[Rfam]
RNA sequence: GGGCCACCCGCUUUACAACGGAUCGUCCGGCACGUUCCUGCCGGUGAAGGGGGCUUCAC
Numbered sequence: 001g002g003g004c005c006a007c008c009c010g011c012u013u014u015a016c017a018a019c020g021g022a023u024c025g026u027c028c029g030g031c032a033c034g035u036u037c038c039u040g041c042c043g044g045u046g047a048a049g050g051g052g053g054c055u056u057c058a059c
Base pairs, nucleotide, nucleotide: 009051011049012048013047014046015045027044028043029042030041031040032039
Shown here is a 59-nucleotide RNA, a member of the family "msiK RNA". By type it is a cis-regulatory element. It scores 56 bits against the family's covariance model.